[Rfam]
Shown here is a 145-nucleotide sequence from Thermanaeromonas toyohensis, a member of the family "c-di-AMP riboswitch aptamer (ydaO/yuaA leader)".
RNA sequence: CCACCCUUAUCGCCGAAUUUCUUCGGCUGUGGAAGAAAGCGGGGGACCCAAAGUAAGGGGUUAAUCCGCACACUACCUGUGCGGUAGGGCUAGGUACUCGGCCCGCACCCGUCAGCUAACCCCGUAGGCGUGAGAGCCGGGUGGA
Dot-bracket structure: ..........((((...(((((((.......)))))))((((((....(.......)(((.....((((...........))))..((((..........))))...))).........)))))).))))...............